RNA: Ribosomal protein L10 leader
Organism: Ligilactobacillus araffinosus
Nucleotides: 116
Base pairs, nucleotide, nucleotide: 028053029052030051031050033042034041035040075100076099077098078097079096080095081094082093083092
Number, partner (000 for none) and nucleotide at each position: 001000a002000a003000g004000u005000u006000g007000a008000u009000a010000a011000u012000a013000g014000u015000u016000c017000u018000a019000c020000c021000u022000a023000a024000g025000a026000c027000u028053c029052a030051g031050g032000u033042g034041g035040c036000g037000u038000a039000g040035g041034c042033c043000u044000c045000a046000a047000a048000a049000u050031c051030c052029u053028g054000c055000c056000g057000a058000g059000g060000a061000g062000a063000a064000u065000a066000c067000g068000g069000u070000u071000c072000u073000u074000u075100c076099u077098c078097u079096a080095u081094g082093u083092c084000u085000u086000a087000g088000u089000g090000u091000a092083g093082a094081c095080a096079u097078a098077g099076a100075g101000u102000u103000u104000u105000u106000u107000a108000u109000u110000a111000c112000u113000c114000u115000a116000a